Alpha operon ribosome binding site: a 93-nucleotide sequence from Pseudomonas sp. C27(2019). Its family is annotated with ribosome binding in the Gene Ontology.
Nucleotides: 093
Stems, first nucleotide, its partner, number of pairs: 004035009016077003019066002026091001
Number, partner (000 for none) and nucleotide at each position: 001000g002000u003000u004035c005034u006033u007032g008031c009030u010029u011028u012027c013000a014000c015000u016077c017076u018075u019066g020065g021000c022000u023000u024000c025000c026091u027012g028011a029010a030009g031008g032007u033006a034005a035004g036000u037000c038000g039000c040000u041000g042000u043000c044000a045000a046000u047000u048000g049000g050000a051000g052000u053000u054000a055000c056000a057000c058000u059000g060000a061000a062000u063000g064000g065020c066019c067000c068000g069000u070000a071000u072000u073000g074000c075018a076017g077016g078000c079000g080000u081000u082000a083000a084000c085000a086000u087000u088000c089000c090000g091026g092000a093000u
From the family's description: The bacterial alpha operon ribosome binding site is surrounded by this complex pseudoknotted structure. Taxonomically the source falls in Pseudomonas (Bacteria, Pseudomonadota, Gammaproteobacteria, Pseudomonadaceae).